[Rfam]
RNA sequence: GGCCACCCCAGGGGGGCUUUACCAUUGGCAGAGUAUUACUUUGCCGUACAAGCAAACGGAAGACAGAAA
Numbered sequence: 001g002g003c004c005a006c007c008c009c010a011g012g013g014g015g016g017c018u019u020u021a022c023c024a025u026u027g028g029c030a031g032a033g034u035a036u037u038a039c040u041u042u043g044c045c046g047u048a049c050a051a052g053c054a055a056a057c058g059g060a061a062g063a064c065a066g067a068a069a
Base pairs, nucleotide, nucleotide: 001018002017003016004015006014007013008012027045028044029043030042031041032040033039
RNA: L2-Alphaproteobacteria ribosomal protein leader